[Rfam]
This 124-nucleotide sequence belongs to the Rfam family "DUF3800-I RNA".
Rfam's curators write: Actinobacteria, Firmicutes, Fusobacteria, Proteobacteria (1 example), Tenericutes (2 examples).
The family's RNA type in Rfam is small RNA.
RNA sequence: UUAUAUUACCGAAAGAGAAAUCUUUGUCAGGUCGAUAGUUAGAUUACGAUUUUAUUAAUUAAGCGUGCUACUUUGUACGCCGUACUAACUGGGAAAGAGCCGUAUGGCUCUUUUUCAUUUUUUU
Numbered sequence: 001u002u003a004u005a006u007u008a009c010c011g012a013a014a015g016a017g018a019a020a021u022c023u024u025u026g027u028c029a030g031g032u033c034g035a036u037a038g039u040u041a042g043a044u045u046a047c048g049a050u051u052u053u054a055u056u057a058a059u060u061a062a063g064c065g066u067g068c069u070a071c072u073u074u075g076u077a078c079g080c081c082g083u084a085c086u087a088a089c090u091g092g093g094a095a096a097g098a099g100c101c102g103u104a105u106g107g108c109u110c111u112u113u114u115u116c117a118u119u120u121u122u123u124u
Stems, first nucleotide, its partner, number of pairs: 008032003011027001012025005036091006045084004049059003063080006093114009